RNA sequence: UCCACCGUGAGGUGGAAUCUGAAGGAAGUCGGCGGCAAAGCUCCGGUCUGAGGAACACGAACCACAUAAAAGGCAUAUGUUCGCUGGGCGAGUUUGCAAGACAAAACAAAGCCCUAAACUAUCCGAAGUGAACGAUGUAAAUGUGGCAGAUAGAUGGAGUGAAAGUAAGCGUU
Dot-bracket structure: ((((((....))))))...........(.((...((...(((((((((((...........((((((.....(((..(((((((.((((..((((........))))...)))).............))))))).)))..)))))))))))...))))))....))...)).)
Numbered sequence: 001u002c003c004a005c006c007g008u009g010a011g012g013u014g015g016a017a018u019c020u021g022a023a024g025g026a027a028g029u030c031g032g033c034g035g036c037a038a039a040g041c042u043c044c045g046g047u048c049u050g051a052g053g054a055a056c057a058c059g060a061a062c063c064a065c066a067u068a069a070a071a072g073g074c075a076u077a078u079g080u081u082c083g084c085u086g087g088g089c090g091a092g093u094u095u096g097c098a099a100g101a102c103a104a105a106a107c108a109a110a111g112c113c114c115u116a117a118a119c120u121a122u123c124c125g126a127a128g129u130g131a132a133c134g135a136u137g138u139a140a141a142u143g144u145g146g147c148a149g150a151u152a153g154a155u156g157g158a159g160u161g162a163a164a165g166u167a168a169g170c171g172u173u
Stems, first nucleotide, its partner, number of pairs: 001016006028173001030171002035166002040160006046151005062146006073138003078134007086114004092107004

The family of this 173-nucleotide sequence from Sporomusa sphaeroides is "Group II catalytic intron D1-D4-3". Pairs were carried over by alignment from the consensus structure. The organism belongs to Sporomusa sphaeroides, within Bacteria. The match comes from Rfam's covariance-model search (156 bits).